[Rfam]
RNA sequence: AAAGCAGGUAGAGGUGCGAUUAAAGAAUAGUACCCGUUGCGUCAAUCUGCCGACAGAUUGCAGCGGGAAAAGGCUUUGUCGCCGAAGAACAUAAGUGUCGGAGCUUAUGUAUCUGGUCGUGUGUCUAAUAUAUGCACGAUUGUCAUCAAGCGGUUAAGCUGUAGGUGGAGAGCUAUCACACAA
Dot-bracket structure: ......(((((....(((((..(((.......((((((((...................))))))))......))).)))))...(((((((((((......)))))))).)))((((((((((.......)))))))))).(((((.(............).)))))....)))))......
RNA: Lysine riboswitch aptamer
Organism: [Eubacterium] siraeum